[Rfam]
RNA sequence: UCCUUAACGAGAAACGAUGCUCAUUCACUUUACCGCCCAAUUGCAAUGGACGACUGAAGGGGAAAGAGUAGCGAGAAAAAUAUUGUCGAAACACGUCUCAUACUGAGCUGUCUGUCAUAUAGACAGUUUGGAUUCUGCGUUUUCGGUACAACC
Numbered sequence: 001u002c003c004u005u006a007a008c009g010a011g012a013a014a015c016g017a018u019g020c021u022c023a024u025u026c027a028c029u030u031u032a033c034c035g036c037c038c039a040a041u042u043g044c045a046a047u048g049g050a051c052g053a054c055u056g057a058a059g060g061g062g063a064a065a066g067a068g069u070a071g072c073g074a075g076a077a078a079a080a081u082a083u084u085g086u087c088g089a090a091a092c093a094c095g096u097c098u099c100a101u102a103c104u105g106a107g108c109u110g111u112c113u114g115u116c117a118u119a120u121a122g123a124c125a126g127u128u129u130g131g132a133u134u135c136u137g138c139g140u141u142u143u144c145g146g147u148a149c150a151a152c153c
Stems, first nucleotide, its partner, number of pairs: 019072002022068001028059002031056002034052002037049002085147005093140003103131003107127009
The family of this 153-nucleotide RNA sequence from Metschnikowia bicuspidata is "Small nucleolar RNA snR8". A search with the family's covariance model found it, with a score of 60 bits. For this family Rfam cites "Genetic analysis of small nuclear RNAs in Saccharomyces cerevisiae: viable sextuple mutant" (Parker et al., Mol Cell Biol, 1988).